[Rfam]
RNA sequence: UGGGAGGUAGAUACUUGGACAGUCCAAAGUAGUGGUCUGUCUGUCACUGCUCCUCCCUACAGUAUACAUGCUCUCUGAUGACCGGGGCGAAUUAAGAGAAAUCGUCACGGACAGAUACGGGGCAGACAAUU
Numbered sequence: 001u002g003g004g005a006g007g008u009a010g011a012u013a014c015u016u017g018g019a020c021a022g023u024c025c026a027a028a029g030u031a032g033u034g035g036u037c038u039g040u041c042u043g044u045c046a047c048u049g050c051u052c053c054u055c056c057c058u059a060c061a062g063u064a065u066a067c068a069u070g071c072u073c074u075c076u077g078a079u080g081a082c083c084g085g086g087g088c089g090a091a092u093u094a095a096g097a098g099a100a101a102u103c104g105u106c107a108c109g110g111a112c113a114g115a116u117a118c119g120g121g122g123c124a125g126a127c128a129a130u131u
Stems, first nucleotide, its partner, number of pairs: 002057006016043003022037001024035002067125001069124006082110003087105004
The record is a 131-nucleotide RNA from Neogobius melanostomus, which matches "Small Cajal body specific RNA 8" in Rfam. NCBI's taxonomy places the organism under Eukaryota, Opisthokonta, Metazoa, Chordata, Neogobius. Rfam 15.1 lists 955 matches to the family in 741 species. Its family is annotated with Cajal body, nucleolus and RNA processing in the Gene Ontology. A search with the family's covariance model found it, with a score of 124 bits. On this family, see Darzacq et al., EMBO J 2002: "Cajal body-specific small nuclear RNAs: a novel class of 2'-O-methylation and pseudouridylation guide RNAs". Rfam describes the family as follows. scaRNAs are a specific class of small nuclear RNAs which localise to the Cajal bodies and guide the modification of RNA polymerase II transcribed spliceosomal RNAs U1, U2, U4, U5 and U12. U92 belong to the H/ACA box class of guide RNAs as it has the predicted hairpin-hinge-hairpin-tail structure, conserved H/ACA-box motifs and is found associated with GAR1.